[Rfam]
Nucleotides: 096
Base pairs, nucleotide, nucleotide: 019081020080021079022078023077024076025075030045031044032043033042034040055072056071057070058069059068060067
Number, partner (000 for none) and nucleotide at each position: 001000u002000g003000c004000a005000u006000u007000a008000a009000u010000a011000a012000c013000u014000a015000a016000a017000a018000g019081u020080c021079u022078a023077a024076u025075a026000u027000a028000u029000c030045g031044c032043c033042g034040u035000a036000a037000u038000g039000g040034g041000u042033c043032g044031g045030c046000u047000g048000u049000c050000u051000c052000u053000a054000c055072u056071u057070g058069g059068a060067a061000c062000c063000a064000u065000a066000a067060u068059u069058c070057c071056a072055a073000a074000c075025u076024a077023u078022u079021a080020g081019a082000a083000c084000a085000a086000g087000a088000c089000c090000c091000u092000a093000g094000a095000c096000g
A member of the RNA family "Purine riboswitch aptamer" from Fructilactobacillus fructivorans, 96 nucleotides long. A search with the family's covariance model found it, with a score of 48 bits. About the family: Riboswitches are metabolite binding domains within certain messenger RNAs that serve as precision sensors for their corresponding targets. Allosteric rearrangement of mRNA structure is mediated by ligand binding, and this results in modulation of gene expression. A class of riboswitches that selectively recognises guanine and becomes saturated at concentrations as low as 5 nM. In Bacillus subtilis, this mRNA motif is located on at least five separate transcriptional units that together encode 17 genes that are mostly involved in purine transport and purine nucleotide biosynthesis. It has also been shown that some members of this family are specific for adenine instead. Hence this family are termed purine riboswitches.